[Rfam]
Shown here is an 87-nucleotide RNA sequence from Brassica oleracea, a member of the family "Small nucleolar RNA R160".
Nucleotides: 087
Stems, first nucleotide, its partner, number of pairs: 001087004
Number, partner (000 for none) and nucleotide at each position: 001087a002086g003085c004084a005000u006000u007000a008000u009000g010000a011000u012000g013000a014000g015000a016000a017000u018000a019000u020000a021000a022000a023000u024000a025000g026000c027000c028000u029000c030000u031000g032000a033000a034000u035000u036000c037000a038000a039000a040000a041000u042000u043000c044000a045000u046000g047000u048000g049000g050000a051000u052000u053000u054000u055000a056000u057000a058000u059000u060000a061000c062000a063000u064000a065000c066000c067000u068000u069000c070000a071000a072000a073000g074000u075000u076000c077000u078000c079000u080000g081000a082000a083000u084004u085003g086002c087001u
The literature on the family includes a 2003 paper in Nucleic Acids Res by Chen et al., "The high diversity of snoRNAs in plants: identification and comparative study of 120 snoRNA genes from Oryza sativa". Rfam 15.1 lists 799 matches to the family in 221 species.